RNA sequence: GGAGCAGCUUCUGGAGAGACCGCUUGGUUAGCGGCGCCGAAGGGUUCACAAUCUCAGGCAAAAGGACAGAAGAGUAAUA
Numbered sequence: 001g002g003a004g005c006a007g008c009u010u011c012u013g014g015a016g017a018g019a020c021c022g023c024u025u026g027g028u029u030a031g032c033g034g035c036g037c038c039g040a041a042g043g044g045u046u047c048a049c050a051a052u053c054u055c056a057g058g059c060a061a062a063a064g065g066a067c068a069g070a071a072g073a074g075u076a077a078u079a
Stems, first nucleotide, its partner, number of pairs: 008072006020034004036059003039055002043053003